A member of the RNA family "Bacterial large subunit ribosomal RNA" from Thermobaculum terrenum, 394 nucleotides of a longer RNA.
RNA sequence: GCAUUGCCUGCGAGAACCAGGCACACCGAAAGCCCAAGGUUUCCUAAGCAAGGUCAAUCCGCUUAGGGUUAGUCGGGCCUAAGGUUGCAAGCCGGAGUGCUUGUGGCCGAUGGACAACGGGUUGAUAUUCCCGUACCAGCGUCUGGUCGCUAUGAGCGAUGGGGGGACGCGGCAGGGUAGGCCGGAGCGGGGCAGUACCGUCCAAGCCUUCCAGGGAGUGCCGGUAGGCAAAUCCGCCGGCACAUAUCCGUGGGGGUGAUGGGGAGAGCCCGGGGCAACCCGGAGCUCAACUCGGCCGAACGCCCAUACCGCCAAGAAAAGCCUCUAAGCCAGACCAGAUGCUGCCCGUACCGCAAACCGACACUGGUGGGCAGGUAGAGGAUACCAAGGUGAA
Numbered sequence: 001g002c003a004u005u006g007c008c009u010g011c012g013a014g015a016a017c018c019a020g021g022c023a024c025a026c027c028g029a030a031a032g033c034c035c036a037a038g039g040u041u042u043c044c045u046a047a048g049c050a051a052g053g054u055c056a057a058u059c060c061g062c063u064u065a066g067g068g069u070u071a072g073u074c075g076g077g078c079c080u081a082a083g084g085u086u087g088c089a090a091g092c093c094g095g096a097g098u099g100c101u102u103g104u105g106g107c108c109g110a111u112g113g114a115c116a117a118c119g120g121g122u123u124g125a126u127a128u129u130c131c132c133g134u135a136c137c138a139g140c141g142u143c144u145g146g147u148c149g150c151u152a153u154g155a156g157c158g159a160u161g162g163g164g165g166g167a168c169g170c171g172g173c174a175g176g177g178u179a180g181g182c183c184g185g186a187g188c189g190g191g192g193c194a195g196u197a198c199c200g201u202c203c204a205a206g207c208c209u210u211c212c213a214g215g216g217a218g219u220g221c222c223g224g225u226a227g228g229c230a231a232a233u234c235c236g237c238c239g240g241c242a243c244a245u246a247u248c249c250g251u252g253g254g255g256g257u258g259a260u261g262g263g264g265a266g267a268g269c270c271c272g273g274g275g276c277a278a279c280c281c282g283g284a285g286c287u288c289a290a291c292u293c294g295g296c297c298g299a300a301c302g303c304c305c306a307u308a309c310c311g312c313c314a315a316g317a318a319a320a321g322c323c324u325c326u327a328a329g330c331c332a333g334a335c336c337a338g339a340u341g342c343u344g345c346c347c348g349u350a351c352c353g354c355a356a357a358c359c360g361a362c363a364c365u366g367g368u369g370g371g372c373a374g375g376u377a378g379a380g381g382a383u384a385c386c387a388a389g390g391u392g393a394a
Base pairs, nucleotide, nucleotide: 005023006022007021008020009019010018024392025391026390027389032372033371034370035369038352039351043067044066045065046064047063048062052060053059074348075347076346077345078113079112083108084107085106087104089102090101091100117134118133119132120131121130137344138343139342140341141340142339143338144337145336146335147334156330157329161325162324163323164322169312170311171310172309175305176304177303180297181296182295183294184293185203187201188200189199190198205260208256209255210254211253215249216248217247219242220241221240222239223238224237225236227235228234270283271282272281273280274279358367359366374386375385376384377383
Rfam links the family to the GO terms structural constituent of ribosome and ribosome.